Shown here is a 374-nucleotide RNA from Mitsuaria sp. PDC51, a member of the family "transfer-messenger RNA". Gene Ontology term of the family: RNA catabolic process. For this family Rfam cites "Phylogenetic analysis of tmRNA secondary structure" (Williams and Bartel, RNA, 1996). Bacterial tmRNA, also known as 10Sa RNA or SsrA, is named for its dual tRNA and mRNA-like properties. Its role is to liberate the mRNA from a stalled ribosome. To accomplish this part of the tmRNA is used as a reading frame that ends in a translation stop signal. The broken mRNA is replaced in the ribosome by the tmRNA and translation of the tmRNA leads to addition of a proteolysis tag to the incomplete protein enabling recognition by a protease. Recently a number of permuted tmRNA genes have been found encoded in two parts. tmRNAs have been identified in eubacteria and some chloroplasts but are absent from archaeal and eukaryote nuclear genomes.
RNA sequence: GGGGCCGACCUGGUUUCGACGUGGGUACGGAUUCGGAGUAGGGCAUGCCGAGGGCCAGGCACCUCGUAAAUCCAUCUGGAAAAAACCAACUGCGAACGAUAACACGUACGCUCUCGCGGCUUAAACCCCGCGGACCUCUCACCGGUUGGCCGAUGGGCCGGGUGAAGGGACGCAAGUCCUGACACAGAGAGGUUAUUCACAUUGGCUGGCUGUCAUUCGUGCACCUUGGGUGACGGCGAGAUUUAGGGUGCUGGCUGAUCCCGCAGCGUGCUCCUGCGCGACGGGGUUGGCGAGAACCAAAUCAGAGAGCUAAGCAUGUAGAACUGCCCGAUGAAGGCUUGCGGACGCGGGUUCAAUUCCCGCCGGCUCCACCA
Numbered sequence: 001g002g003g004g005c006c007g008a009c010c011u012g013g014u015u016u017c018g019a020c021g022u023g024g025g026u027a028c029g030g031a032u033u034c035g036g037a038g039u040a041g042g043g044c045a046u047g048c049c050g051a052g053g054g055c056c057a058g059g060c061a062c063c064u065c066g067u068a069a070a071u072c073c074a075u076c077u078g079g080a081a082a083a084a085a086c087c088a089a090c091u092g093c094g095a096a097c098g099a100u101a102a103c104a105c106g107u108a109c110g111c112u113c114u115c116g117c118g119g120c121u122u123a124a125a126c127c128c129c130g131c132g133g134a135c136c137u138c139u140c141a142c143c144g145g146u147u148g149g150c151c152g153a154u155g156g157g158c159c160g161g162g163u164g165a166a167g168g169g170a171c172g173c174a175a176g177u178c179c180u181g182a183c184a185c186a187g188a189g190a191g192g193u194u195a196u197u198c199a200c201a202u203u204g205g206c207u208g209g210c211u212g213u214c215a216u217u218c219g220u221g222c223a224c225c226u227u228g229g230g231u232g233a234c235g236g237c238g239a240g241a242u243u244u245a246g247g248g249u250g251c252u253g254g255c256u257g258a259u260c261c262c263g264c265a266g267c268g269u270g271c272u273c274c275u276g277c278g279c280g281a282c283g284g285g286g287u288u289g290g291c292g293a294g295a296a297c298c299a300a301a302u303c304a305g306a307g308a309g310c311u312a313a314g315c316a317u318g319u320a321g322a323a324c325u326g327c328c329c330g331a332u333g334a335a336g337g338c339u340u341g342c343g344g345a346c347g348c349g350g351g352u353u354c355a356a357u358u359c360c361c362g363c364c365g366g367c368u369c370c371a372c373c374a
Base pairs, nucleotide, nucleotide: 001370002369003368004367005366006365007364020343021342022341023340024339025338026337033331034330035329036328038327039326040325041324044318045317046316047315048314049066050065051064052063053062055079056078057077058076059075112134113133115132116131117130118129119128135192136191137190138189139188140187142161143160144159145158146157149206150205151204152203153202154201155200209237210236211235212234213233214232215231216230217229223252225250227248254291255290256289257288258287259286260285261284262283263282266279267278268277270310271309272308273307276302347363348362349361350360351359
Dot-bracket structure: (((((((............(((((((......((((.((((..((((((((((.[[[[[..)))))........]]]]]................................((.(((((........)))))))((((((.(((((..[[[[[[[.))))).........................)))))).......]]]]]]]..(((((((((.....[.[.[.)))))))))..........].].].((((((((((..(((.[[[[..[)))..))))))))))..........]....]]]]...))))).....)))))))).....)))))))...(((((.......))))))))))))....